Shown here is an 86-nucleotide RNA from Litchfieldia stipae, a member of the family "c-di-GMP-I riboswitch aptamer". Rfam links the family to the GO term cyclic-di-GMP binding. The organism belongs to Litchfieldia, within Bacteria. GEMM was predicted in a large-scale screen for bacterial structured RNA regulatory elements.
[Rfam]
RNA sequence: CGUACGAACGGGCAAAAUCAUUGAAAAGUGAUGACGCAAAGCUUCAGGGGCUAAUGACUAAUUGACUAUGCCAGCCAGCUAUCGAA
Numbered sequence: 001c002g003u004a005c006g007a008a009c010g011g012g013c014a015a016a017a018u019c020a021u022u023g024a025a026a027a028g029u030g031a032u033g034a035c036g037c038a039a040a041g042c043u044u045c046a047g048g049g050g051c052u053a054a055u056g057a058c059u060a061a062u063u064g065a066c067u068a069u070g071c072c073a074g075c076c077a078g079c080u081a082u083c084g085a086a
Base pairs, nucleotide, nucleotide: 012037013036017032018031019030020029021028022027040080041079042078043077047076048075049072050071051070056066058064